[Rfam]
RNA sequence: UUGAAUAAAUACGGGAGCCUGUGGAAUCAGGCUGAGAGUAUGACUAACUGUCAUAGACCGUUUGAACCUGUUGGAUAAUGCCAGCGUAGGAAAUGUGAUUAGGGUAUAA
Numbered sequence: 001u002u003g004a005a006u007a008a009a010u011a012c013g014g015g016a017g018c019c020u021g022u023g024g025a026a027u028c029a030g031g032c033u034g035a036g037a038g039u040a041u042g043a044c045u046a047a048c049u050g051u052c053a054u055a056g057a058c059c060g061u062u063u064g065a066a067c068c069u070g071u072u073g074g075a076u077a078a079u080g081c082c083a084g085c086g087u088a089g090g091a092a093a094u095g096u097g098a099u100u101a102g103g104g105u106a107u108a109a
Base pairs, nucleotide, nucleotide: 006097007096009094010093011061012060013059014058017032018031019030020029021028039055040054041053042052043051067090068089069088070087071084072083073082074081
The record is a 109-nucleotide sequence from Bacillus mesophilum, which matches "TPP riboswitch aptamer (THI element)" in Rfam.
The source organism's lineage runs through Bacteria, Bacillati, Bacilli, Bacillaceae and Bacillus.